The record is a 53-nucleotide RNA sequence from Falsirhodobacter algicola, which matches "ffh sRNA" in Rfam. A reference for the family is Meyer et al. (2009), "Identification of candidate structured RNAs in the marine organism 'Candidatus Pelagibacter ubique'", BMC Genomics. The family's RNA type in Rfam is small RNA. The match comes from Rfam's covariance-model search (56 bits). The base pairs follow the family's consensus structure, which is taken from published work.
RNA sequence: CGAUCAGGGGAUCGCCACCCACCAGCGCGUCGCGCCCGUGGGUGCCGUUGGUG
Number, nucleotide and partner (000 for none) at each position: 001c000002g000003a000004u000005c000006a000007g000008g000009g000010g000011a000012u000013c000014g000015c000016c044017a043018c042019c041020c040021a039022c038023c000024a000025g035026c034027g033028c032029g000030u000031c000032g028033c027034g026035c025036c000037c000038g022039u021040g020041g019042g018043u017044g016045c000046c000047g000048u000049u000050g000051g000052u000053g000